The record is a 109-nucleotide sequence from Agrilutibacter solisilvae, which matches "Xanthomonadaceae sRNA sX13" in Rfam.
Lineage of the source: Bacteria > Pseudomonadota > Gammaproteobacteria > Lysobacterales > Agrilutibacter.
A search with the family's covariance model found it, with a score of 67 bits.
RNA sequence: AACGCCUGUCGUGAUCCUCCCUCCCCUGGAGCGAUCCCGGAAGCGACGACCCCUCCCCAGGUCCCGCUUCUCCAGCCCCGCCGGCCCCCCCUGCCUGCGGGGCUUUUUA
Numbered sequence: 001a002a003c004g005c006c007u008g009u010c011g012u013g014a015u016c017c018u019c020c021c022u023c024c025c026c027u028g029g030a031g032c033g034a035u036c037c038c039g040g041a042a043g044c045g046a047c048g049a050c051c052c053c054u055c056c057c058c059a060g061g062u063c064c065c066g067c068u069u070c071u072c073c074a075g076c077c078c079c080g081c082c083g084g085c086c087c088c089c090c091c092u093g094c095c096u097g098c099g100g101g102g103c104u105u106u107u108u109a
Stems, first nucleotide, its partner, number of pairs: 006011001013036004017031004039071007048063004074104008083095003